[Rfam]
RNA sequence: UAUCCAUGGUGAGGGCAUGCAUUUAAAAUGUCUUUGAAUCGUUUCCAACAAUAGUAAAAUGUUUCCACAUCCUUUUGGCAAAAAUUCAUGAUUUGUCUUUUCAAGACA
Numbered sequence: 001u002a003u004c005c006a007u008g009g010u011g012a013g014g015g016c017a018u019g020c021a022u023u024u025a026a027a028a029u030g031u032c033u034u035u036g037a038a039u040c041g042u043u044u045c046c047a048a049c050a051a052u053a054g055u056a057a058a059a060u061g062u063u064u065c066c067a068c069a070u071c072c073u074u075u076u077g078g079c080a081a082a083a084a085u086u087c088a089u090g091a092u093u094u095g096u097c098u099u100u101u102c103a104a105g106a107c108a
Stems, first nucleotide, its partner, number of pairs: 001108001003106002006101001057074002

Rfam assigns this 108-nucleotide RNA sequence from Carya illinoinensis to the family "Plant small nucleolar RNA R71". The family's consensus secondary structure was predicted with PFOLD. A reference for the family is Brown et al. (2003), "Plant snoRNAs: functional evolution and new modes of gene expression", Trends Plant Sci. It is annotated as a C/D-box small nucleolar RNA. Lineage of the source: Eukaryota > Viridiplantae > Spermatophyta > eudicotyledons > Carya.